[Rfam]
RNA sequence: GCUGAUGCUGGCGGUGAUGCCAAAGGUGCAAGCUGGAAGUGGGUGCUACGUCAUCGUCGUCACCGCCAUCAUCGUCGUC
Numbered sequence: 001g002c003u004g005a006u007g008c009u010g011g012c013g014g015u016g017a018u019g020c021c022a023a024a025g026g027u028g029c030a031a032g033c034u035g036g037a038a039g040u041g042g043g044u045g046c047u048a049c050g051u052c053a054u055c056g057u058c059g060u061c062a063c064c065g066c067c068a069u070c071a072u073c074g075u076c077g078u079c
Stems, first nucleotide, its partner, number of pairs: 001076001003074005009068009021059001023057001025055004029050001031047003

This 79-nucleotide RNA sequence from Fukomys damarensis belongs to the Rfam family "mir-598 microRNA precursor family". NCBI's taxonomy places the organism under Eukaryota, Bilateria, Deuterostomia, Boreoeutheria, Fukomys. The match comes from Rfam's covariance-model search (78 bits).